[Rfam]
RNA sequence: UAAUCUGUUUGGGGCAAAUUCUCAUUUAGUUAUGGCAUACUUACACCUGACUACUCAGAAUCACGCAUACCAUAUAAACAAUAAUUUUUUGAUAUUUUAAUUGGAGU
Dot-bracket structure: ...((((((..(.....(.....((.(.(((.............................................))).)..))....).....)..)).))))..
Numbered sequence: 001u002a003a004u005c006u007g008u009u010u011g012g013g014g015c016a017a018a019u020u021c022u023c024a025u026u027u028a029g030u031u032a033u034g035g036c037a038u039a040c041u042u043a044c045a046c047c048u049g050a051c052u053a054c055u056c057a058g059a060a061u062c063a064c065g066c067a068u069a070c071c072a073u074a075u076a077a078a079c080a081a082u083a084a085u086u087u088u089u090u091g092a093u094a095u096u097u098u099a100a101u102u103g104g105a106g107u
Stems, first nucleotide, its partner, number of pairs: 004105004008100002012096001018090001024085002027081001029079003

A member of the RNA family "MIR480 microRNA precursor family" from Populus trichocarpa, 107 nucleotides long.
The match comes from Rfam's covariance-model search (68 bits).
Rfam 15.1 lists 3,070 matches to the family in 171 species.
A reference for the family is Lu et al. (2005), "Novel and mechanical stress-responsive MicroRNAs in Populus trichocarpa that are absent from Arabidopsis", Plant Cell.
Pairs were carried over by alignment from the consensus structure, which was predicted with WAR.
Taxonomically the source falls in Populus (Eukaryota, Viridiplantae, Euphyllophyta, eudicotyledons).